[Rfam]
RNA sequence: AACUGACAAACAAAAAUGACUCGUAUAAUCGGACGAACUGGGUCCGAUGUUUCUACCGGGAGCCGAUUUUCCCGACUACGUGUCUCUGCGUGAUCCUU
Numbered sequence: 001a002a003c004u005g006a007c008a009a010a011c012a013a014a015a016a017u018g019a020c021u022c023g024u025a026u027a028a029u030c031g032g033a034c035g036a037a038c039u040g041g042g043u044c045c046g047a048u049g050u051u052u053c054u055a056c057c058g059g060g061a062g063c064c065g066a067u068u069u070u071c072c073c074g075a076c077u078a079c080g081u082g083u084c085u086c087u088g089c090g091u092g093a094u095c096c097u098u
Stems, first nucleotide, its partner, number of pairs: 018084003022080004029047006057074006